A member of the RNA family "mir-BART13 microRNA precursor family" from Lymphocryptovirus macacinegamma4, 82 nucleotides long. It is one of the family's seed sequences. The family has 2 seed sequences and 5 matches in Rfam 15.1. Gene Ontology terms of the family: miRNA-mediated post-transcriptional gene silencing and RISC complex. Taxonomically the source falls in Lymphocryptovirus macacinegamma4 (Viruses, Duplodnaviria, Herpesvirales, Orthoherpesviridae).
[Rfam]
RNA sequence: GGGCUCCCCGGUCACCGGCUCACAGCUAGUACGGACGAUUAUUGGCUCUGUAACUUGUCGUGGGACGGGCAUCGAUGUGCUC
Numbered sequence: 001g002g003g004c005u006c007c008c009c010g011g012u013c014a015c016c017g018g019c020u021c022a023c024a025g026c027u028a029g030u031a032c033g034g035a036c037g038a039u040u041a042u043u044g045g046c047u048c049u050g051u052a053a054c055u056u057g058u059c060g061u062g063g064g065a066c067g068g069g070c071a072u073c074g075a076u077g078u079g080c081u082c
Stems, first nucleotide, its partner, number of pairs: 001082004006077001009074004015068003019064005025058002029054002031051005036045001